The record is a 67-nucleotide sequence from Bombyx mori, which matches "mir-2774 microRNA precursor family" in Rfam. The base pairs follow the family's consensus structure, which was predicted with RNAalifold. Its family is annotated with RISC complex and miRNA-mediated post-transcriptional gene silencing in the Gene Ontology. A reference for the family is Liu et al. (2010), "MicroRNAs of Bombyx mori identified by Solexa sequencing", BMC Genomics. It scores 58 bits against the family's covariance model. Lineage of the source: Eukaryota > Eumetazoa > Bilateria > Panarthropoda > Bombyx.
[Rfam]
RNA sequence: ACAACAUUCAGACCGUCGGUUUACCGGGCAAUAUCACCGGAUCAGUGGAAGCUCUUCCCUCCGUCGU
Dot-bracket structure: ...((.....((..(.(..(((((.((.(..........).)).))))).).)..)).....))...